[Rfam]
RNA sequence: UGCUGCCAUCAGCAGCACAGAAGUAAGGGUGGUGUGGUACGGUAUUGACACCCUUACUUCUGUGCUGCUGCUGGCAGGG
Numbered sequence: 001u002g003c004u005g006c007c008a009u010c011a012g013c014a015g016c017a018c019a020g021a022a023g024u025a026a027g028g029g030u031g032g033u034g035u036g037g038u039a040c041g042g043u044a045u046u047g048a049c050a051c052c053c054u055u056a057c058u059u060c061u062g063u064g065c066u067g068c069u070g071c072u073g074g075c076a077g078g079g
Base pairs, nucleotide, nucleotide: 001079003077005075006074007073011069012068013067014066015065016064017063018062020059022058023057024056025055026054027053028052029051
A member of the RNA family "mir-16 microRNA precursor family" from Gopherus evgoodei, 79 nucleotides long. It scores 46 bits against the family's covariance model.